[Rfam]
RNA: ffh sRNA
RNA sequence: UGCGCCGGGGAUCGCCACCGGUCAGCGCGUUGCGCCCGCCGGUGCGUUCGCC
Number, nucleotide and partner (000 for none) at each position: 001u000002g000003c000004g000005c000006c000007g000008g000009g000010g000011a000012u000013c000014g000015c000016c044017a043018c042019c041020g040021g039022u038023c000024a000025g035026c034027g033028c032029g000030u000031u000032g028033c027034g026035c025036c000037c000038g022039c021040c020041g019042g018043u017044g016045c000046g000047u000048u000049c000050g000051c000052c000